[Rfam]
RNA sequence: UCCAGGCAGACAAAGUAACCUAUACGGCGAAAUCAGACUUGGGUGGAGAGAAGGAAUGCAUAACCUUCCUGAAAAGGUAAAUAGAUGCCCUGAUGGUGUGCGAGCGGACGCUGCUUGCAUGGCGGUGCUUGGUAGUGAUGUGCCGUUUCAUGCUCGCACCCUACGCAGCUAUAUGUAACUAUCCGGCAGCUGUACGGGGCAGUGUUUUUGAAAGGAGAUCCC
Numbered sequence: 001u002c003c004a005g006g007c008a009g010a011c012a013a014a015g016u017a018a019c020c021u022a023u024a025c026g027g028c029g030a031a032a033u034c035a036g037a038c039u040u041g042g043g044u045g046g047a048g049a050g051a052a053g054g055a056a057u058g059c060a061u062a063a064c065c066u067u068c069c070u071g072a073a074a075a076g077g078u079a080a081a082u083a084g085a086u087g088c089c090c091u092g093a094u095g096g097u098g099u100g101c102g103a104g105c106g107g108a109c110g111c112u113g114c115u116u117g118c119a120u121g122g123c124g125g126u127g128c129u130u131g132g133u134a135g136u137g138a139u140g141u142g143c144c145g146u147u148u149c150a151u152g153c154u155c156g157c158a159c160c161c162u163a164c165g166c167a168g169c170u171a172u173a174u175g176u177a178a179c180u181a182u183c184c185g186g187c188a189g190c191u192g193u194a195c196g197g198g199g200c201a202g203u204g205u206u207u208u209u210g211a212a213a214g215g216a217g218a219u220c221c222c
Base pairs, nucleotide, nucleotide: 004040005039006038019027020026068077069076070075086201087200088199089198090197091196092195094194095161098159099158100157101156102155103154104153105152110118111117121147122146123145124144125143126142127141165193166192167191168190169189173182

A member of the RNA family "RT-2 RNA", 222 nucleotides long. The base pairs follow the family's consensus structure, which is taken from published work. By type it is a small RNA.